[Rfam]
RNA sequence: GCCGAGCUGGGUUGCAUCAGCUUGUAACUCAAGCGAGGGCAUCAAGGUGAUGGGACUUGGCUUAAUUUCACAUGGUAGGGUUACAGGUUGUGGUCUGUUGGCUUGCCCGUUCCGAACUGGGAGUUGGGUUGAGUGGGUUAGGCGAAGGCCUGGUCUAAACAGCACCUGAAGAGGAGGGCAUUGCGUCAGGCUGGCUUCACAGAGCAGCGAAUACCUCUCGCCCUCGGUAGUGGAGGGAUAACAAGUCAGGCCAUCCUCGGUCCGUCAUUACUCUGUGGGGAGAGCUCAAUCGGACUAUCACCUUU
Dot-bracket structure: ((((((((((......)))))))....(((....))))))...((((((((((..(.((((((..(.(((((.((((((((.(..(..((.(.....((((((((.((.(((((.((((((.((.(.((((..((((((((((....))))))))))..)))).)(....).(((((....(.(((....(((......)))....))).)..))))).)).))))))..)))))))....)))))))).))).).).).))).....)))).))))))..))).)))...)..)))))))))).